[Rfam]
RNA sequence: GGGGCUGCACUGGUUUCGACGUGGGUUCGGACACGCAGCAGGGCAUGUCGAGGUUCAGUCACCUCGUUAAUCCGCUGAAACCAAGUAACUGCAAACGACGAACGUUUCGCACUCGCCGCUUAAACACCGGUGAGCCUCACAACAGUUGGCCGAUGGGCUGGGCAAGGGGCGCAAGCUCCCGGCUGUGAGGGAAUUCACAUUGGCUGGUCCUGAUCCGGGUGCCUUGGGUCGGGACGAGAAAAUAGGGCACUGGCGGCUGGCAUAGCGUGCGUCUGCGCGAUGCCCGCGGCGAGAUCCAAACCAGAGCGCUAAACAUGUAGAUCUGCGCGGAGAAGGCUUGCGGACGCGGGUUCAAUUCCCGCCAGCUCCACCA
Numbered sequence: 001g002g003g004g005c006u007g008c009a010c011u012g013g014u015u016u017c018g019a020c021g022u023g024g025g026u027u028c029g030g031a032c033a034c035g036c037a038g039c040a041g042g043g044c045a046u047g048u049c050g051a052g053g054u055u056c057a058g059u060c061a062c063c064u065c066g067u068u069a070a071u072c073c074g075c076u077g078a079a080a081c082c083a084a085g086u087a088a089c090u091g092c093a094a095a096c097g098a099c100g101a102a103c104g105u106u107u108c109g110c111a112c113u114c115g116c117c118g119c120u121u122a123a124a125c126a127c128c129g130g131u132g133a134g135c136c137u138c139a140c141a142a143c144a145g146u147u148g149g150c151c152g153a154u155g156g157g158c159u160g161g162g163c164a165a166g167g168g169g170c171g172c173a174a175g176c177u178c179c180c181g182g183c184u185g186u187g188a189g190g191g192a193a194u195u196c197a198c199a200u201u202g203g204c205u206g207g208u209c210c211u212g213a214u215c216c217g218g219g220u221g222c223c224u225u226g227g228g229u230c231g232g233g234a235c236g237a238g239a240a241a242a243u244a245g246g247g248c249a250c251u252g253g254c255g256g257c258u259g260g261c262a263u264a265g266c267g268u269g270c271g272u273c274u275g276c277g278c279g280a281u282g283c284c285c286g287c288g289g290c291g292a293g294a295u296c297c298a299a300a301c302c303a304g305a306g307c308g309c310u311a312a313a314c315a316u317g318u319a320g321a322u323c324u325g326c327g328c329g330g331a332g333a334a335g336g337c338u339u340g341c342g343g344a345c346g347c348g349g350g351u352u353c354a355a356u357u358c359c360c361g362c363c364a365g366c367u368c369c370a371c372c373a
Stems, first nucleotide, its partner, number of pairs: 001369007020342008034329003038326005044317005049066005054079006112134007135190006143160004149204007207235009217251002222246001253290002256287002259284004265278003269309004275301001346362005
The record is a 373-nucleotide RNA from Ramlibacter tataouinensis, which matches "transfer-messenger RNA" in Rfam. It scores 199 bits against the family's covariance model. By type it is a non-coding RNA gene. Pairs were carried over by alignment from the consensus structure, which is taken from published work. Rfam's curators write: Bacterial tmRNA, also known as 10Sa RNA or SsrA, is named for its dual tRNA and mRNA-like properties. The literature on the family includes a 1996 paper in RNA by Williams and Bartel, "Phylogenetic analysis of tmRNA secondary structure".